[Rfam]
RNA sequence: AGUAGAGUAAAUAUUGCGCGUAAAGUGCCUUGGGAUGGGAAGUUGCCCUUGGACGAAGGUGGCCGUGAAAUUCUACCACGAUGUAAUAUUGCAUCCGCUACU
Numbered sequence: 001a002g003u004a005g006a007g008u009a010a011a012u013a014u015u016g017c018g019c020g021u022a023a024a025g026u027g028c029c030u031u032g033g034g035a036u037g038g039g040a041a042g043u044u045g046c047c048c049u050u051g052g053a054c055g056a057a058g059g060u061g062g063c064c065g066u067g068a069a070a071u072u073c074u075a076c077c078a079c080g081a082u083g084u085a086a087u088a089u090u091g092c093a094u095c096c097g098c099u100a101c102u
Stems, first nucleotide, its partner, number of pairs: 001102005010090009019080003025054002028052002032048003038096003042092001058077004
Annotation:
The record is a 102-nucleotide sequence from Lactonifactor longoviformis, which matches "THF (Tetrahydrofolate) riboswitch aptamer" in Rfam. A search with the family's covariance model found it, with a score of 74 bits. The source organism's lineage runs through Bacteria, Clostridia, Clostridiaceae, Lactonifactor and Lactonifactor longoviformis. Tetrahydrofolate (THF) riboswitch was first reported for Ames et al. as an RNA motif in 5' untranslated (5'-UTR)regions of folate transport and biosynthesis genes in Firmicutes genomes.